Nucleotides: 126
Stems, first nucleotide, its partner, number of pairs: 003042008031059004049081006066110004083105005094122002097120004
Number, partner (000 for none) and nucleotide at each position: 001000c002000a003042c004041c005040u006039u007038g008037c009036u010035g011000g012000u013000c014000g015000g016000g017000g018000c019000c020000a021000u022000g023000g024000u025000u026000u027000a028000a029000c030000g031059a032058c033057g034056g035010c036009g037008g038007c039006a040005a041004g042003g043000g044000a045000a046000g047000a048000g049081g050080c051079u052078c053077c054076u055000a056034c057033c058032g059031u060000g061000g062000g063000a064000u065000a066110g067109a068108c069107c070000u071000g072000a073000a074000a075000c076054a077053g078052g079051a080050g081049c082000g083105u084104g085103g086102g087101u088000g089000g090000c091000g092000a093000g094122g095121c096000u097120u098119a099118g100117a101087a102086c103085c104084c105083a106000a107069g108068g109067u110066c111000g112000g113000a114000a115000a116000g117100u118099c119098u120097g121095g122094c123000g124000a125000g126000u